[Rfam]
RNA sequence: UGCGGGAUGCCGCUAGCGGGUCCCGCAAGUAACCACUCGCUGAAAUCAGGAGAUUAGUUAUGAGC
Numbered sequence: 001u002g003c004g005g006g007a008u009g010c011c012g013c014u015a016g017c018g019g020g021u022c023c024c025g026c027a028a029g030u031a032a033c034c035a036c037u038c039g040c041u042g043a044a045a046u047c048a049g050g051a052g053a054u055u056a057g058u059u060a061u062g063a064g065c
Stems, first nucleotide, its partner, number of pairs: 001027008010019003031054001036052003040049003
Notes: Rfam assigns this 65-nucleotide RNA sequence from Pseudomonas indica to the family "Repression of heat shock gene expression (ROSE) element". Rfam links the family to the GO terms regulation of translation and response to temperature stimulus. The match comes from Rfam's covariance-model search (58 bits). The base pairs follow the family's consensus structure. Rfam classes the family as an RNA thermoregulator. The organism belongs to Pseudomonas, within Bacteria.